This 133-nucleotide RNA from Lepidothrix coronata belongs to the Rfam family "Small nucleolar RNA SNORA13". ACA13 is a member of the H/ACA class of snoRNA that guide the sites of modification of uridines to pseudouridines. Gene Ontology terms of the family: nucleolus and RNA processing. The source organism's lineage runs through Eukaryota, Bilateria, Deuterostomia, Dipnotetrapodomorpha and Lepidothrix. The family's RNA type in Rfam is H/ACA-box small nucleolar RNA.
[Rfam]
RNA sequence: GGCCUUUGUGUUGCCCAUUCAUUCCUGCCCAGAGUGAGUGAGGUGUCAAAAAAGGCAAACAGGAGUUCCUGCUCAAACUCUUUUAAGGAGCUGAUUAUUUGUGUUUCUCCUCCCUGUUUUUGCAAGGACAAAA
Dot-bracket structure: .((((((.((.((((((((((((.........)))))))).)))).))..))))))...........(.((..((((......((.((.(...(..........)...)..)).))..)))))).).......
Numbered sequence: 001g002g003c004c005u006u007u008g009u010g011u012u013g014c015c016c017a018u019u020c021a022u023u024c025c026u027g028c029c030c031a032g033a034g035u036g037a038g039u040g041a042g043g044u045g046u047c048a049a050a051a052a053a054g055g056c057a058a059a060c061a062g063g064a065g066u067u068c069c070u071g072c073u074c075a076a077a078c079u080c081u082u083u084u085a086a087g088g089a090g091c092u093g094a095u096u097a098u099u100u101g102u103g104u105u106u107c108u109c110c111u112c113c114c115u116g117u118u119u120u121u122g123c124a125a126g127g128a129c130a131a132a133a
Stems, first nucleotide, its partner, number of pairs: 002056006009048002012045004016040008068126001070124002074122004084116002087113002090109001094105001